[Rfam]
RNA sequence: UCAGUUACAAACUAGCAUCUGGGGCACACACAACGAGUAUCUGAUUACUCUUACUUUGCCCCGGGAAGGUCUGAGAUUUGGCCAAGCCUCCUUGUGUUGUUACAACAUGCAGUGCAUCGAGAGGUGCCUGUGUGUCGGAGGCUUAAUUUCCUAGCAGGAAACCUGUGUGAUUGCAGGACGAAAGUACCAGAAAUACUGCGGCUUGGCGUUGCCAUCGGCGCUCGCGUCUGACUGCCGCCUUGUUGCAUUGAAAACUUUCGUGGCCGGCUGUUUUAGUGCAAUGUGCUUGCUGCAGAACCUCCGGGCAACGCAGAACUCAAUUCAGACUAAUCUGUGACUGA
Number, nucleotide and partner (000 for none) at each position: 001u341002c340003a339004g338005u000006u000007a335008c334009a333010a000011a000012c289013u000014a287015g286016c285017a284018u283019c000020u000021g062022g061023g060024g059025c058026a000027c000028a000029c000030a000031c000032a000033a000034c000035g050036a049037g048038u047039a046040u000041c000042u000043g000044a000045u000046u039047a038048c037049u036050c035051u000052u000053a000054c000055u000056u000057u000058g025059c024060c023061c022062c021063g000064g000065g000066a000067a000068g000069g000070u000071c325072u324073g323074a322075g321076a000077u000078u000079u000080g265081g264082c263083c262084a000085a000086g000087c000088c000089u000090c000091c000092u000093u000094g000095u000096g000097u000098u000099g000100u000101u000102a000103c000104a000105a000106c000107a000108u000109g000110c000111a000112g000113u000114g000115c000116a000117u000118c000119g000120a000121g000122a000123g000124g000125u000126g000127c000128c000129u000130g000131u000132g000133u000134g000135u000136c000137g000138g000139a000140g000141g000142c000143u000144u000145a000146a000147u161148u160149u159150c158151c157152u000153a000154g000155c000156a000157g151158g150159a149160a148161a147162c177163c176164u175165g174166u173167g172168u000169g000170a000171u000172u167173g166174c165175a164176g163177g162178a261179c260180g259181a258182a257183a256184g255185u000186a000187c000188c000189a000190g000191a000192a000193a000194u000195a000196c000197u000198g246199c245200g244201g000202c000203u000204u000205g000206g000207c000208g000209u000210u000211g000212c000213c000214a000215u000216c000217g000218g000219c000220g000221c000222u000223c000224g000225c000226g000227u000228c000229u000230g000231a000232c000233u000234g000235c000236c000237g000238c000239c000240u000241u000242g000243u000244u200245g199246c198247a000248u000249u000250g000251a000252a000253a000254a000255c184256u183257u182258u181259c180260g179261u178262g083263g082264c081265c080266g000267g000268c000269u000270g000271u000272u000273u000274u000275a000276g000277u000278g000279c000280a000281a000282u000283g018284u017285g016286c015287u014288u000289g012290c313291u312292g311293c310294a000295g000296a000297a000298c000299c000300u000301c000302c000303g000304g000305g000306c000307a000308a000309c000310g293311c292312a291313g290314a000315a000316c000317u000318c000319a000320a000321u075322u074323c073324a072325g071326a000327c000328u000329a000330a000331u000332c000333u009334g008335u007336g000337a000338c004339u003340g002341a001
RNA: Nuclear RNase P
Organism: Drosophila pseudoobscura